[Rfam]
RNA sequence: AGAUCCCAGCGCGGGAGCCCGGCGAACCGGGCUGAGAGGGCGGCAUGAGGCCGCCGACCGCUGAACCUGAUCCGGGUCAUGCCGGCGAAGGGAGCGCCAGAGUGGACGACGU
Numbered sequence: 001a002g003a004u005c006c007c008a009g010c011g012c013g014g015g016a017g018c019c020c021g022g023c024g025a026a027c028c029g030g031g032c033u034g035a036g037a038g039g040g041c042g043g044c045a046u047g048a049g050g051c052c053g054c055c056g057a058c059c060g061c062u063g064a065a066c067c068u069g070a071u072c073c074g075g076g077u078c079a080u081g082c083c084g085g086c087g088a089a090g091g092g093a094g095c096g097c098c099a100g101a102g103u104g105g106a107c108g109a110c111g112u
Stems, first nucleotide, its partner, number of pairs: 006100001009097002011061004017032005039055005066091003072085004
Rfam assigns this 112-nucleotide RNA sequence from Actinoallomurus iriomotensis to the family "TPP riboswitch aptamer (THI element)". Lineage of the source: Bacteria > Bacillati > Actinomycetes > Streptosporangiales > Actinoallomurus. A search with the family's covariance model found it, with a score of 57 bits. Rfam describes the family as follows. Vitamin B(1) in its active form thiamin pyrophosphate (TPP) is an essential coenzyme that is synthesised by coupling of pyrimidine and thiazole moieties in bacteria. For this family Rfam cites "A conserved RNA structure (thi box) is involved in regulation of thiamin biosynthetic gene expression in bacteria" (Miranda-Rios et al., Proc Natl Acad Sci U S A, 2001).